Small nucleolar RNA R44/J54/Z268 family: a 94-nucleotide sequence from Zingiber officinale.
[Rfam]
RNA sequence: UUUGCAAGUGACGAUAAACAUAGACAGGGACAUCUGUACUCUUAAAGAGGUUGAUGAUUGGUUCUAUGGGAAAUGGGAAUCUCUCCGAUGCAAU
Number, nucleotide and partner (000 for none) at each position: 001u000002u093003u092004g091005c090006a089007a000008g000009u000010g000011a000012c000013g000014a000015u000016a000017a000018a000019c000020a000021u000022a000023g000024a000025c000026a000027g000028g000029g000030a000031c000032a000033u000034c000035u000036g000037u000038a000039c000040u000041c000042u000043u000044a000045a000046a000047g000048a000049g000050g000051u000052u000053g000054a000055u000056g000057a000058u000059u000060g000061g000062u000063u000064c000065u000066a000067u000068g000069g000070g000071a000072a000073a000074u000075g000076g000077g000078a000079a000080u000081c000082u000083c000084u000085c000086c000087g000088a000089u006090g005091c004092a003093a002094u000
Lineage of the source: Eukaryota > Viridiplantae > Magnoliopsida > commelinids > Zingiber.
It scores 63 bits against the family's covariance model.